[Rfam]
RNA sequence: AGGUUUGAAAUUCCUCGGCAAUUAACUGCAGCCGGUUCUUUUAAAUUUCGGCAGUUAACUGUCGAAGGGCAU
Numbered sequence: 001a002g003g004u005u006u007g008a009a010a011u012u013c014c015u016c017g018g019c020a021a022u023u024a025a026c027u028g029c030a031g032c033c034g035g036u037u038c039u040u041u042u043a044a045a046u047u048u049c050g051g052c053a054g055u056u057a058a059c060u061g062u063c064g065a066a067g068g069g070c071a072u
Stems, first nucleotide, its partner, number of pairs: 012068002015065006022058008
The record is a 72-nucleotide RNA sequence from Medicago truncatula, which matches "MIR2629 microRNA precursor family" in Rfam. The base pairs follow the family's consensus structure, which was predicted with RNAalifold. Its family is annotated with miRNA-mediated post-transcriptional gene silencing and RISC complex in the Gene Ontology.